[Rfam]
RNA sequence: ACCGCCACGGAUGGCGGGCGUAUUAAGCAGAAACGAUGUUUUGCCUUUGGCAAAACUUGCAAGUCAAUUUACAACACGGAUGUUGUAAAUUGACGCAAC
Numbered sequence: 001a002c003c004g005c006c007a008c009g010g011a012u013g014g015c016g017g018g019c020g021u022a023u024u025a026a027g028c029a030g031a032a033a034c035g036a037u038g039u040u041u042u043g044c045c046u047u048u049g050g051c052a053a054a055a056c057u058u059g060c061a062a063g064u065c066a067a068u069u070u071a072c073a074a075c076a077c078g079g080a081u082g083u084u085g086u087a088a089a090u091u092g093a094c095g096c097a098a099c
Stems, first nucleotide, its partner, number of pairs: 002017005034059003038056008063094013
RNA: TD-2 RNA